[Rfam]
RNA sequence: AUAGCAACAUAUGGCCACAGUAGAAGCGCUCAUGUCAUGGCCCUGUCACAUUCUAACAAAUCUGCAAAUUCUGCU
Number, nucleotide and partner (000 for none) at each position: 001a000002u000003a000004g000005c000006a000007a000008c000009a000010u000011a000012u000013g042014g041015c040016c039017a000018c000019a075020g074021u073022a072023g071024a070025a069026g038027c000028g036029c000030u000031c000032a000033u000034g000035u000036c028037a000038u026039g016040g015041c014042c013043c000044u000045g000046u000047c064048a063049c000050a061051u060052u059053c000054u000055a000056a000057c000058a000059a052060a051061u050062c000063u048064g047065c000066a000067a000068a000069u025070u024071c023072u022073g021074c020075u019
Rfam assigns this 75-nucleotide RNA from Crocodylus porosus to the family "Mammalian CPEB3 ribozyme". Its family is annotated with RNA nuclease activity in the Gene Ontology. Pairs were carried over by alignment from the consensus structure, which is taken from published work.